[Rfam]
RNA sequence: UGUAUUCAUUGUCUUUUUUUUCAUUGUAAUUCACGGCGUGAAACAGGGGAUUACACUGUUUUUAACCGAAAGUGAAUCAAUUAACAUAAUAGACUCCU
Numbered sequence: 001u002g003u004a005u006u007c008a009u010u011g012u013c014u015u016u017u018u019u020u021u022c023a024u025u026g027u028a029a030u031u032c033a034c035g036g037c038g039u040g041a042a043a044c045a046g047g048g049g050a051u052u053a054c055a056c057u058g059u060u061u062u063u064a065a066c067c068g069a070a071a072g073u074g075a076a077u078c079a080a081u082u083a084a085c086a087u088a089a090u091a092g093a094c095u096c097c098u
Stems, first nucleotide, its partner, number of pairs: 002097001004095001009092004015088001017086001019084002023081001025079002029077006038066002040062007
About this RNA:
The record is a 98-nucleotide sequence from Nicotiana attenuata, which matches "MIR6152 microRNA precursor family" in Rfam. The organism belongs to Nicotiana, within Eukaryota. Rfam 15.1 lists 5,807 matches to the family in 3 species. A search with the family's covariance model found it, with a score of 59 bits. The family's consensus secondary structure was predicted with RNAalifold.